[Rfam]
Background
The family of this 78-nucleotide sequence from Larimichthys crocea is "mir-203 microRNA precursor family". The base pairs follow the family's consensus structure, which was predicted with RNAalifold. On this family, see Lim et al., Science 2003: "Vertebrate microRNA genes". Taxonomically the source falls in Larimichthys (Eukaryota, Actinopterygii, Clupeocephala, Percomorphaceae). The family has 32 seed sequences and 1,049 matches in Rfam 15.1. A search with the family's covariance model found it, with a score of 75 bits.

RNA sequence: UCCUCUUUGGUCCAGUGGUUCUCGACAGUUCAACAGUGAAGCAACAUUUGUGAAAUGUUUAGGACCACUGGAUCCGAG
Numbered sequence: 001u002c003c004u005c006u007u008u009g010g011u012c013c014a015g016u017g018g019u020u021c022u023c024g025a026c027a028g029u030u031c032a033a034c035a036g037u038g039a040a041g042c043a044a045c046a047u048u049u050g051u052g053a054a055a056u057g058u059u060u061a062g063g064a065c066c067a068c069u070g071g072a073u074c075c076g077a078g
Stems, first nucleotide, its partner, number of pairs: 014069006021062002024059004029054004